Record summary
This 54-nucleotide RNA from Jannaschia pohangensis belongs to the Rfam family "COG3860 RNA". The family's RNA type in Rfam is cis-regulatory element. It scores 62 bits against the family's covariance model. Lineage of the source: Bacteria > Pseudomonadati > Rhodobacterales > Roseobacteraceae > Jannaschia.
[Rfam]
RNA sequence: GGGUCCGCAGUUCACCCAGGCGCCGCCGCCCAUCCGGGCACGCUGAACCUGCGA
Numbered sequence: 001g002g003g004u005c006c007g008c009a010g011u012u013c014a015c016c017c018a019g020g021c022g023c024c025g026c027c028g029c030c031c032a033u034c035c036g037g038g039c040a041c042g043c044u045g046a047a048c049c050u051g052c053g054a
Base pairs, nucleotide, nucleotide: 001017002016003015004014028039029038030037031036